[Rfam]
RNA sequence: CGAGGGGAUGCAGCAGCAAUUCAUGUUUUGAAGUGAUUUAAACGGUUCAAAACGUGAGGCGCUGCUAUACCCCCUCGCGGGGAA
Number, nucleotide and partner (000 for none) at each position: 001c077002g076003a075004g074005g073006g072007g071008a000009u069010g068011c000012a000013g065014c064015a063016g062017c061018a000019a000020u058021u057022c056023a055024u054025g053026u052027u051028u050029u049030g048031a047032a046033g000034u044035g000036a000037u000038u000039u000040a000041a000042a000043c000044g034045g000046u032047u031048c030049a029050a028051a027052a026053c025054g024055u023056g022057a021058g020059g000060c000061g017062c016063u015064g014065c013066u000067a000068u010069a009070c000071c007072c006073c005074c004075u003076c002077g001078c000079g000080g000081g000082g000083a000084a000
RNA: mir-322 microRNA precursor family
Organism: Equus caballus